[Rfam]
Background
Acido-Lenti-1 RNA: a 46-nucleotide RNA sequence from Kolteria novifilia.
RNA sequence: CCAGGGGUUGCCACCCCUGGCUACUGACCGCCGCCGCUUCGCGGCA
Numbered sequence: 001c002c003a004g005g006g007g008u009u010g011c012c013a014c015c016c017c018u019g020g021c022u023a024c025u026g027a028c029c030g031c032c033g034c035c036g037c038u039u040c041g042c043g044g045c046a
Base pairs, nucleotide, nucleotide: 001020002019003018004017005016006015007014008013033045034044035043036042037041
It scores 38 bits against the family's covariance model.